[Rfam]
About this RNA:
Rfam assigns this 87-nucleotide RNA from Triticum aestivum to the family "MIR1120/MIR1122 microRNA precursor family". Pairs were carried over by alignment from the consensus structure, which was predicted with RNAalifold.
RNA sequence: UUACUCCCUCUGUCCCGUAAUAUAAGAACGUUUUUGACACUAGUGUAGUGUCAAAAAUGUUCUUAUAUUAUAAGACAGAGGAAGUAA
Numbered sequence: 001u002u003a004c005u006c007c008c009u010c011u012g013u014c015c016c017g018u019a020a021u022a023u024a025a026g027a028a029c030g031u032u033u034u035u036g037a038c039a040c041u042a043g044u045g046u047a048g049u050g051u052c053a054a055a056a057a058u059g060u061u062c063u064u065a066u067a068u069u070a071u072a073a074g075a076c077a078g079a080g081g082a083a084g085u086a087a
Stems, first nucleotide, its partner, number of pairs: 003085003007081005013075002017071001019069023
Description:
A search with the family's covariance model found it, with a score of 92 bits.